The record is a 140-nucleotide RNA sequence from Ideonella sp. MAG2, which matches "ZMP/ZTP riboswitch aptamer (pfl RNA motif)" in Rfam. The family's consensus secondary structure is taken from published work.
RNA sequence: AGGCUACCGCGCGACUGGCGAUAAGUCAGCGUUGCAGGCGGCACUGCCCGCCUCAAGCUGUCGAGGUGGAUCACCACCGGGAAGCGCGGGACCUGACUCUCUGAGUCAGGUUCACACAGCCGUUCGCCUGGGCACCCCAC
Numbered sequence: 001a002g003g004c005u006a007c008c009g010c011g012c013g014a015c016u017g018g019c020g021a022u023a024a025g026u027c028a029g030c031g032u033u034g035c036a037g038g039c040g041g042c043a044c045u046g047c048c049c050g051c052c053u054c055a056a057g058c059u060g061u062c063g064a065g066g067u068g069g070a071u072c073a074c075c076a077c078c079g080g081g082a083a084g085c086g087c088g089g090g091a092c093c094u095g096a097c098u099c100u101c102u103g104a105g106u107c108a109g110g111u112u113c114a115c116a117c118a119g120c121c122g123u124u125c126g127c128c129u130g131g132g133c134a135c136c137c138c139a140c
Stems, first nucleotide, its partner, number of pairs: 003093001005091001007089006015081002017128005066077004119133003